[Rfam]
RNA sequence: AAAAUAGACAUCUAGGGUUCCGGCUGACUUCAAAUCAGUGACUGGUCCGAGAGUUGUCAACCUCACCGCUUUAUCGCAAUCGAGGUCACACGGAGGGACAAAAGCCCGGGAGAA
Numbered sequence: 001a002a003a004a005u006a007g008a009c010a011u012c013u014a015g016g017g018u019u020c021c022g023g024c025u026g027a028c029u030u031c032a033a034a035u036c037a038g039u040g041a042c043u044g045g046u047c048c049g050a051g052a053g054u055u056g057u058c059a060a061c062c063u064c065a066c067c068g069c070u071u072u073a074u075c076g077c078a079a080u081c082g083a084g085g086u087c088a089c090a091c092g093g094a095g096g097g098a099c100a101a102a103a104g105c106c107c108g109g110g111a112g113a114a
Stems, first nucleotide, its partner, number of pairs: 007058004012053001015048002020045002022042001023039005060086005089109001091112001095107003

This 114-nucleotide sequence from Neiella litorisoli belongs to the Rfam family "Guanidine-I riboswitch aptamer". The base pairs follow the family's consensus structure. Lineage of the source: Bacteria > Pseudomonadati > Pseudomonadota > Gammaproteobacteria > Neiella. A search with the family's covariance model found it, with a score of 87 bits.